[Rfam]
RNA sequence: GUGAGUUUCGUAGGGUUUAAAGCAACAAAACUUUGCUCGCCGACACGCGUACGCGAAAGCUCUACCCAAACUCACUAUGG
Numbered sequence: 001g002u003g004a005g006u007u008u009c010g011u012a013g014g015g016u017u018u019a020a021a022g023c024a025a026c027a028a029a030a031c032u033u034u035g036c037u038c039g040c041c042g043a044c045a046c047g048c049g050u051a052c053g054c055g056a057a058a059g060c061u062c063u064a065c066c067c068a069a070a071c072u073c074a075c076u077a078u079g080g
Stems, first nucleotide, its partner, number of pairs: 001075008010065009
This 80-nucleotide RNA from Drosophila grimshawi belongs to the Rfam family "mir-1017 microRNA precursor family". Lineage of the source: Eukaryota > Opisthokonta > Eumetazoa > Panorpida > Hawaiian Drosophila. Rfam links the family to the GO terms miRNA-mediated post-transcriptional gene silencing and RISC complex.